The family of this 109-nucleotide sequence from Zea mays is "MIR5565 microRNA precursor family". Pairs were carried over by alignment from the consensus structure, which was predicted with RNAalifold. The family has 7 seed sequences and 3,346 matches in Rfam 15.1. A search with the family's covariance model found it, with a score of 94 bits. The organism belongs to Zea, within Eukaryota.
RNA sequence: ACUCUCUUAUUCACCUCAAUCCACAUGUAUUGAGGUGGAUUGGACUGGAACUUAAACUAAUCUAUACCCCAAUCCACUUCAAUACAUGUGGAUUGAGGUAAAUACGAGA
Numbered sequence: 001a002c003u004c005u006c007u008u009a010u011u012c013a014c015c016u017c018a019a020u021c022c023a024c025a026u027g028u029a030u031u032g033a034g035g036u037g038g039a040u041u042g043g044a045c046u047g048g049a050a051c052u053u054a055a056a057c058u059a060a061u062c063u064a065u066a067c068c069c070c071a072a073u074c075c076a077c078u079u080c081a082a083u084a085c086a087u088g089u090g091g092a093u094u095g096a097g098g099u100a101a102a103u104a105c106g107a108g109a
Stems, first nucleotide, its partner, number of pairs: 004108003008104004013099002016096017035077009046066002